[Rfam]
RNA sequence: UUUUAUAAAAGGCAAAACUAGAGUAAUCUAGUGACGCAAAGCUAUAGGGUCUAAAUAGACAGCCAGUUGCAAAA
Numbered sequence: 001u002u003u004u005a006u007a008a009a010a011g012g013c014a015a016a017a018c019u020a021g022a023g024u025a026a027u028c029u030a031g032u033g034a035c036g037c038a039a040a041g042c043u044a045u046a047g048g049g050u051c052u053a054a055a056u057a058g059a060c061a062g063c064c065a066g067u068u069g070c071a072a073a074a
Stems, first nucleotide, its partner, number of pairs: 012037002017032006040068004047064002049060003

A member of the RNA family "c-di-GMP-I riboswitch aptamer" from Anaeroplasma bactoclasticum, 74 nucleotides long. On this family, see Weinberg et al., Nucleic Acids Res 2007: "Identification of 22 candidate structured RNAs in bacteria using the CMfinder comparative genomics pipeline". A search with the family's covariance model found it, with a score of 68 bits.